A member of the RNA family "mir-399 microRNA precursor family" from Papaver somniferum, 112 nucleotides long. Rfam describes the family as follows. mir-399 was identified in both Arabidopsis thaliana and Oryza sativa computationally and was later experimentally verified. mir-399 is thought to target mRNAs coding for a phosphatase transporter. The mature sequence is excised from the 3' arm of the hairpin. A search with the family's covariance model found it, with a score of 79 bits.
RNA sequence: AUAAGAAUAACAGUGCAGUUCUCCUCUGGCAGAGAAGUGACGAGCCGGGCAACUGGUGUUUGUUCCUUGCUUGUUUCUUUCUGCCAAAGGAGAAUUGCCCUGCCAUUCACCC
Numbered sequence: 001a002u003a004a005g006a007a008u009a010a011c012a013g014u015g016c017a018g019u020u021c022u023c024c025u026c027u028g029g030c031a032g033a034g035a036a037g038u039g040a041c042g043a044g045c046c047g048g049g050c051a052a053c054u055g056g057u058g059u060u061u062g063u064u065c066c067u068u069g070c071u072u073g074u075u076u077c078u079u080u081c082u083g084c085c086a087a088a089g090g091a092g093a094a095u096u097g098c099c100c101u102g103c104c105a106u107u108c109a110c111c112c
Stems, first nucleotide, its partner, number of pairs: 005108004011102003015098005021092004027086009